[Rfam]
RNA: Rhizobiales sRNA Atu_C7
RNA sequence: AUGUGUCGAACGCAGUUGCUUCAGGUGUUCCUGAGUUUUUGAUUUCCAGUGUUUUAGUUCUCCUGGCGUGUCUUCAAGCCGCAGGUGUUUCCUCCCUCCCCUGCUGGUGAUGCGCCCGCCUUGCCUCGCUUGCCGCUUUUGCGGAGCGAGGCUUUUU
Numbered sequence: 001a002u003g004u005g006u007c008g009a010a011c012g013c014a015g016u017u018g019c020u021u022c023a024g025g026u027g028u029u030c031c032u033g034a035g036u037u038u039u040u041g042a043u044u045u046c047c048a049g050u051g052u053u054u055u056a057g058u059u060c061u062c063c064u065g066g067c068g069u070g071u072c073u074u075c076a077a078g079c080c081g082c083a084g085g086u087g088u089u090u091c092c093u094c095c096c097u098c099c100c101c102u103g104c105u106g107g108u109g110a111u112g113c114g115c116c117c118g119c120c121u122u123g124c125c126u127c128g129c130u131u132g133c134c135g136c137u138u139u140u141g142c143g144g145a146g147c148g149a150g151g152c153u154u155u156u157u
Base pairs, nucleotide, nucleotide: 065116066115067114068113069112070111071110072109081104082103083102084101085100087098123152124151125150126149127148128147129146130145131144134141